[Rfam]
RNA: mir-67 microRNA precursor family
Organism: Apolygus lucorum
RNA sequence: UGUGGCGGUCACUCACUCAAUCUGGGUGUGAUGUGUACAUUGACUCCAUCACAACCUCCUUGAGUGAGCGACUGAUUCA
Numbered sequence: 001u002g003u004g005g006c007g008g009u010c011a012c013u014c015a016c017u018c019a020a021u022c023u024g025g026g027u028g029u030g031a032u033g034u035g036u037a038c039a040u041u042g043a044c045u046c047c048a049u050c051a052c053a054a055c056c057u058c059c060u061u062g063a064g065u066g067a068g069c070g071a072c073u074g075a076u077u078c079a
Base pairs, nucleotide, nucleotide: 009070012068013067014066015065016064017063018062019061020060024056025055027053028052029051030050031049032048033047